[Rfam]
RNA sequence: UGGAGGACUGAGAAGGUAAGACAGUUUAACUCGAUGCUGUAUCUUACUGGUUACGGCCUCCGAAAUUAUAACGGUGCAAAAGCAACUCAUGUUUCCCUGCUCACGUGAGGGAAAGCGAUACUGCAUUUG
Numbered sequence: 001u002g003g004a005g006g007a008c009u010g011a012g013a014a015g016g017u018a019a020g021a022c023a024g025u026u027u028a029a030c031u032c033g034a035u036g037c038u039g040u041a042u043c044u045u046a047c048u049g050g051u052u053a054c055g056g057c058c059u060c061c062g063a064a065a066u067u068a069u070a071a072c073g074g075u076g077c078a079a080a081a082g083c084a085a086c087u088c089a090u091g092u093u094u095c096c097c098u099g100c101u102c103a104c105g106u107g108a109g110g111g112a113a114a115g116c117g118a119u120a121c122u123g124c125a126u127u128u129g
Base pairs, nucleotide, nucleotide: 002061003060004059005058006057015048016047017046018045019042021040022039023038024037025036081122082121085119087117093113094112095111096110097109100107
RNA: Small nucleolar RNA SNORA47
Organism: Meleagris gallopavo